[Rfam]
RNA sequence: GGAUUCCGGUUCACAUUCAUCGCUGUCGGUGGGUUGGUGGUGCUGUCAACUCGCCGGUCGAUGAAUGACCACCGUGUCUGU
Dot-bracket structure: (.(.(.((.....(((((((((..(((((((.((((..........)))).)))))))))))))))).....)).)..).)
Numbered sequence: 001g002g003a004u005u006c007c008g009g010u011u012c013a014c015a016u017u018c019a020u021c022g023c024u025g026u027c028g029g030u031g032g033g034u035u036g037g038u039g040g041u042g043c044u045g046u047c048a049a050c051u052c053g054c055c056g057g058u059c060g061a062u063g064a065a066u067g068a069c070c071a072c073c074g075u076g077u078c079u080g081u
Stems, first nucleotide, its partner, number of pairs: 001081001003079001005076001007074002014067009025058007033050004

This 81-nucleotide sequence from Takifugu flavidus belongs to the Rfam family "mir-181 microRNA precursor family". It scores 51 bits against the family's covariance model. The family has 157 seed sequences and 3,490 matches in Rfam 15.1. Gene Ontology terms of the family: RISC complex and miRNA-mediated post-transcriptional gene silencing. A reference for the family is Lagos-Quintana et al. (2003), "New microRNAs from mouse and human", RNA.